Record summary: The record is a 79-nucleotide RNA sequence from Lepeophtheirus salmonis, which matches "mir-34 microRNA precursor family" in Rfam. Pairs were carried over by alignment from the consensus structure, which was predicted with RNAalifold. From the family's description: Human mir-34a was discovered computationally and later experimentally verified. The mature sequence is excised from the 5' arm of the hairpin. Clan: mir-34 clan. Lineage of the source: Eukaryota > Arthropoda > Mandibulata > Copepoda > Lepeophtheirus. The match comes from Rfam's covariance-model search (55 bits). Gene Ontology terms of the family: miRNA-mediated post-transcriptional gene silencing and RISC complex. On this family, see Dostie et al., RNA 2003: "Numerous microRNPs in neuronal cells containing novel microRNAs".
RNA sequence: UGCCGUCUGGCAGUGUGAUUAGCUGGUUGUGGGCACAUUAUCCUUAGAAUACAACUACUAACUGCACUGCCUAGCGGAG
Numbered sequence: 001u002g003c004c005g006u007c008u009g010g011c012a013g014u015g016u017g018a019u020u021a022g023c024u025g026g027u028u029g030u031g032g033g034c035a036c037a038u039u040a041u042c043c044u045u046a047g048a049a050u051a052c053a054a055c056u057a058c059u060a061a062c063u064g065c066a067c068u069g070c071c072u073a074g075c076g077g078a079g
Stems, first nucleotide, its partner, number of pairs: 003077004009071002012068006019061004024057008